[Rfam]
Notes:
A. fumigatus sRNA Afu_309: a 275-nucleotide RNA from Sphaerosporella brunnea. By type it is a small RNA. Lineage of the source: Eukaryota > Ascomycota > Pezizomycotina > Pyronemataceae > Sphaerosporella.
RNA sequence: UUCUUUUCACAUCAUACAGAUUUGUGUCAACGACCUGCCCCCCAUCUUCGGAUGGGUGGGUUCAGUCGACGUUGACAGUUCGGCGAUCUAUGGAAGCUGACUCUUCACAGAGACUACUGAGGUAAAUCCGCGUCGACAAAUCUGAGAACGAGCGUCGAAGUCUUGAGCUCGUCCUUUCGGGGACUGAAUUCGGCGGAGACGUAGUUGCAUAUUCCUACUCGCUUUCGAGGGCGUCGCCUGGUGAAGAGUGCGAAAAACCAUGUAUACGAACAUUU
Numbered sequence: 001u002u003c004u005u006u007u008c009a010c011a012u013c014a015u016a017c018a019g020a021u022u023u024g025u026g027u028c029a030a031c032g033a034c035c036u037g038c039c040c041c042c043c044a045u046c047u048u049c050g051g052a053u054g055g056g057u058g059g060g061u062u063c064a065g066u067c068g069a070c071g072u073u074g075a076c077a078g079u080u081c082g083g084c085g086a087u088c089u090a091u092g093g094a095a096g097c098u099g100a101c102u103c104u105u106c107a108c109a110g111a112g113a114c115u116a117c118u119g120a121g122g123u124a125a126a127u128c129c130g131c132g133u134c135g136a137c138a139a140a141u142c143u144g145a146g147a148a149c150g151a152g153c154g155u156c157g158a159a160g161u162c163u164u165g166a167g168c169u170c171g172u173c174c175u176u177u178c179g180g181g182g183a184c185u186g187a188a189u190u191c192g193g194c195g196g197a198g199a200c201g202u203a204g205u206u207g208c209a210u211a212u213u214c215c216u217a218c219u220c221g222c223u224u225u226c227g228a229g230g231g232c233g234u235c236g237c238c239u240g241g242u243g244a245a246g247a248g249u250g251c252g253a254a255a256a257a258c259c260a261u262g263u264a265u266a267c268g269a270a271c272a273u274u275u
Stems, first nucleotide, its partner, number of pairs: 018143008026076007034068001035065003038059002040056002043054004084135004088130001091119003095115002155197002160194003165191001171184004204267002206264005219253004225247002229239004